Rfam assigns this 135-nucleotide sequence from Burkholderia multivorans to the family "h2cR sRNA". It is one of the family's seed sequences. The base pairs follow the family's consensus structure. The organism belongs to Burkholderia multivorans, within Bacteria.
[Rfam]
RNA sequence: GUCAGAGAAUAUGUUGUGCGUGUGUGGCGUGGUCGUCACAAAUCUGUUUGGCGGGAUUCUACCCUGUUCGAUCGGGAAGCGCCCAGUCGCGAUUGUGUCGAACCGUAACCCACUAUAGACGCUAACGCGCAUUUG
Numbered sequence: 001g002u003c004a005g006a007g008a009a010u011a012u013g014u015u016g017u018g019c020g021u022g023u024g025u026g027g028c029g030u031g032g033u034c035g036u037c038a039c040a041a042a043u044c045u046g047u048u049u050g051g052c053g054g055g056a057u058u059c060u061a062c063c064c065u066g067u068u069c070g071a072u073c074g075g076g077a078a079g080c081g082c083c084c085a086g087u088c089g090c091g092a093u094u095g096u097g098u099c100g101a102a103c104c105g106u107a108a109c110c111c112a113c114u115a116u117a118g119a120c121g122c123u124a125a126c127g128c129g130c131a132u133u134u135g
Stems, first nucleotide, its partner, number of pairs: 007134004012129003018122003021117003024113004028105002031103001033101003037097005045089002048086003051082003059079002062076003066072002